[Rfam]
RNA: Guanidine-I riboswitch aptamer
RNA sequence: ACAAUGGGUUACUAGGGUUCCGGCUUCACAUUUUGAAGUGCUGGUCCGAGAGUAACCGACCUUUCAGCUGCGCACUGUUAAGGUUACACGGAGGGAUAAAAGCCCGGGAGAU
Numbered sequence: 001a002c003a004a005u006g007g008g009u010u011a012c013u014a015g016g017g018u019u020c021c022g023g024c025u026u027c028a029c030a031u032u033u034u035g036a037a038g039u040g041c042u043g044g045u046c047c048g049a050g051a052g053u054a055a056c057c058g059a060c061c062u063u064u065c066a067g068c069u070g071c072g073c074a075c076u077g078u079u080a081a082g083g084u085u086a087c088a089c090g091g092a093g094g095g096a097u098a099a100a101a102g103c104c105c106g107g108g109a110g111a112u
Base pairs, nucleotide, nucleotide: 007057008056009055010054011053012052015047016046020044021043022041023039024038025037026036027035028034058085059084060083061082062081063080087107089110093105094104095103